[Rfam]
Rfam assigns this 68-nucleotide RNA sequence from Parnassius apollo to the family "mir-2766 microRNA precursor family".
Rfam 15.1 lists 14 matches to the family in 14 species.
RNA sequence: GUCCCGCCCACCCUUCGUCUCGACUGGCGCUGUUCAAUGCUUCAGUCUUGUCGAAUGGUGGGUGGGCU
Dot-bracket structure: ..((((((((((.((((.(..((((((.((........)).))))))..).)))).))))))))))..